The family of this 78-nucleotide RNA from Methylophaga thalassica is "c-di-GMP-I riboswitch aptamer". Pairs were carried over by alignment from the consensus structure, which is taken from published work. Rfam 15.1 lists 5,092 matches to the family in 1,772 species. Taxonomically the source falls in Methylophaga thalassica (Bacteria, Pseudomonadota, Gammaproteobacteria, Methylophaga). GEMM was predicted in a large-scale screen for bacterial structured RNA regulatory elements. Genes associated with GEMM are involved in a diverse array of functions, including chemotaxis regulation, signal transduction, secretion and chitin.
[Rfam]
RNA sequence: GAACAGUUAAGCCAACCUUGGUGUGAGCCAUGUGACGGAAAGCCACGGAUCUUUUUUAAAGAUGGCCGGGUUGCAUAG
Numbered sequence: 001g002a003a004c005a006g007u008u009a010a011g012c013c014a015a016c017c018u019u020g021g022u023g024u025g026a027g028c029c030a031u032g033u034g035a036c037g038g039a040a041a042g043c044c045a046c047g048g049a050u051c052u053u054u055u056u057u058a059a060a061g062a063u064g065g066c067c068g069g070g071u072u073g074c075a076u077a078g
Stems, first nucleotide, its partner, number of pairs: 012038002017032001019030004041072004046068003049063006